[Rfam]
RNA sequence: AGACUUUAAUAGAAAGGAAUGAUGGGUGGACGAUGAUUAACUAAUCUAUUUUGUCACGUAUUUGAAAAAUUUUUCAGCAACGAACAAAUAGGAUUAGUAUGCCCAUUUUUUCUUUAUCGGCUUUGUGUGCAAUUUUUGGUUGCGCAUAUUUUCUAAUCCUAUCGCGAUACGCGGUAGGAUUUUUUU
Numbered sequence: 001a002g003a004c005u006u007u008a009a010u011a012g013a014a015a016g017g018a019a020u021g022a023u024g025g026g027u028g029g030a031c032g033a034u035g036a037u038u039a040a041c042u043a044a045u046c047u048a049u050u051u052u053g054u055c056a057c058g059u060a061u062u063u064g065a066a067a068a069a070u071u072u073u074u075c076a077g078c079a080a081c082g083a084a085c086a087a088a089u090a091g092g093a094u095u096a097g098u099a100u101g102c103c104c105a106u107u108u109u110u111u112c113u114u115u116a117u118c119g120g121c122u123u124u125g126u127g128u129g130c131a132a133u134u135u136u137u138g139g140u141u142g143c144g145c146a147u148a149u150u151u152u153c154u155a156a157u158c159c160u161a162u163c164g165c166g167a168u169a170c171g172c173g174g175u176a177g178g179a180u181u182u183u184u185u186u
Base pairs, nucleotide, nucleotide: 016111017110018109019108023105024104025103026102030098031097042096043095044094045093046092047091050088051087052086053085054084062077063076064075065074066073067072118138119137120136155181156180157179158178159177160176161175162174163173164172165171
Description
A member of the RNA family "Bacillus sRNA ncr1575" from Caryophanon tenue, 186 nucleotides long. On this family, see Irnov et al., Nucleic Acids Res 2010: "Identification of regulatory RNAs in Bacillus subtilis". A search with the family's covariance model found it, with a score of 97 bits. The source organism's lineage runs through Bacteria, Bacillati, Caryophanales, Caryophanaceae and Caryophanon.